[Rfam]
RNA sequence: UAAAAGGGCCGGUUGGCUAAAUUUGCCAUGCUUAACCUGGUCGGUAAGUGCUGCGUGGCUAUCAAGACAUGGCCGGCAUAAUUCAUGGAACCUAAAUAGGGUUGGCUCGCUUGGCCGACCCUUCAU
Numbered sequence: 001u002a003a004a005a006g007g008g009c010c011g012g013u014u015g016g017c018u019a020a021a022u023u024u025g026c027c028a029u030g031c032u033u034a035a036c037c038u039g040g041u042c043g044g045u046a047a048g049u050g051c052u053g054c055g056u057g058g059c060u061a062u063c064a065a066g067a068c069a070u071g072g073c074c075g076g077c078a079u080a081a082u083u084c085a086u087g088g089a090a091c092c093u094a095a096a097u098a099g100g101g102u103u104g105g106c107u108c109g110c111u112u113g114g115c116c117g118a119c120c121c122u123u124c125a126u
Base pairs, nucleotide, nucleotide: 008077009076010075011074012073014028015027016026017025029050030049031048032047033046034045036043051072052071053070056069057068096123100120101119102118103117104116105115106114107113